[Rfam]
RNA sequence: GCCCCGCCUGCCCAGUGUUCAGACUGCCUGUUCAGGAGGCUCUCACGGUGUACAGUAGUCUGCACAUUGGUUAGACUGGGUC
Dot-bracket structure: ...........(((((((.(((((((.((((.((..............)).))))))))))).)))))))............
Background: The family of this 82-nucleotide RNA sequence from Pelusios castaneus is "mir-199 microRNA precursor family". For this family Rfam cites "miRNPs: a novel class of ribonucleoproteins containing numerous microRNAs" (Mourelatos et al., Genes Dev, 2002). From the family's description: This family consists of the microRNA (miRNA) precursor mir-199 which appears to be specific to humans. The base pairs follow the family's consensus structure, which was predicted with RNAalifold. Gene Ontology terms of the family: RISC complex and miRNA-mediated post-transcriptional gene silencing. Rfam 15.1 lists 1,828 matches to the family in 648 species.